[Rfam]
RNA sequence: GCAGCGCCGAGGGAUCGCCCUCGGCGAGGAUCACAAC
Numbered sequence: 001g002c003a004g005c006g007c008c009g010a011g012g013g014a015u016c017g018c019c020c021u022c023g024g025c026g027a028g029g030a031u032c033a034c035a036a037c
Base pairs, nucleotide, nucleotide: 005026006025007024008023009022010021011020012019013018
The record is a 37-nucleotide RNA from Frankia casuarinae, which matches "CRISPR RNA direct repeat element" in Rfam.